[Rfam]
A member of the RNA family "Plant signal recognition particle RNA" from Zea mays, 309 nucleotides long.
Its family is annotated with signal recognition particle, endoplasmic reticulum targeting and SRP-dependent cotranslational protein targeting to membrane, signal sequence recognition in the Gene Ontology.
It is annotated as a non-coding RNA gene.
A search with the family's covariance model found it, with a score of 224 bits.
RNA sequence: GCCGAGCUCAGUUACGAGAGCUUGUAACCCUAGUGGGGGCAUUAAAGGUGGUGCGGAUGCUUUCUGACGGCUUCUGGGCCUGGGCCCAUAUGUGCCACUAGGCUGGACUGUCCAUCCCAAGUUGGGAGUGUCUGGCGGGGCUCAGGGCAAGCCUUGGACCUCUCUAGGCCUGAAGCGGUAGGCACGGCGUGAGGCUGGUUUAACAGAGCAGCGAUCACUGCCCGCUUCCAACGGUGGGAGGAUAACAGGCCGGCUGCACUGAGAGCCCAACUCGGGCCCAGAUCCACAUUAAAGCAGACCACCAUCUUU
Numbered sequence: 001g002c003c004g005a006g007c008u009c010a011g012u013u014a015c016g017a018g019a020g021c022u023u024g025u026a027a028c029c030c031u032a033g034u035g036g037g038g039g040c041a042u043u044a045a046a047g048g049u050g051g052u053g054c055g056g057a058u059g060c061u062u063u064c065u066g067a068c069g070g071c072u073u074c075u076g077g078g079c080c081u082g083g084g085c086c087c088a089u090a091u092g093u094g095c096c097a098c099u100a101g102g103c104u105g106g107a108c109u110g111u112c113c114a115u116c117c118c119a120a121g122u123u124g125g126g127a128g129u130g131u132c133u134g135g136c137g138g139g140g141c142u143c144a145g146g147g148c149a150a151g152c153c154u155u156g157g158a159c160c161u162c163u164c165u166a167g168g169c170c171u172g173a174a175g176c177g178g179u180a181g182g183c184a185c186g187g188c189g190u191g192a193g194g195c196u197g198g199u200u201u202a203a204c205a206g207a208g209c210a211g212c213g214a215u216c217a218c219u220g221c222c223c224g225c226u227u228c229c230a231a232c233g234g235u236g237g238g239a240g241g242a243u244a245a246c247a248g249g250c251c252g253g254c255u256g257c258a259c260u261g262a263g264a265g266c267c268c269a270a271c272u273c274g275g276g277c278c279c280a281g282a283u284c285c286a287c288a289u290u291a292a293a294g295c296a297g298a299c300c301a302c303c304a305u306c307u308u309u
Stems, first nucleotide, its partner, number of pairs: 001040003004023006028037003044309010055299001058296002061293003069285002073282009082268004087263001089261002092259003096256002103253004108248004112241002115239005121232009130169006137162004142157006170175001177222005186215001188213003195206003